[Rfam]
RNA: S10-Clostridia ribosomal protein leader
Nucleotides: 097
Stems, first nucleotide, its partner, number of pairs: 014070003018066004025060008078096004
Number, partner (000 for none) and nucleotide at each position: 001000c002000u003000a004000u005000a006000g007000c008000a009000a010000u011000g012000a013000a014070u015069c016068a017000u018066a019065a020064g021063g022000u023000u024000g025060c026059u027058a028057a029056a030055a031054u032053g033000c034000c035000a036000a037000u038000u039000a040000a041000u042000g043000u044000u045000g046000u047000u048000g049000a050000g051000g052000a053032c054031a055030u056029u057028u058027u059026a060025g061000g062000u063021u064020u065019u066018u067000a068016u069015g070014a071000g072000g073000a074000g075000c076000u077000a078096u079095g080094u081093u082000c083000a084000a085000a086000c087000a088000a089000a090000a091000a092000g093081a094080a095079c096078a097000a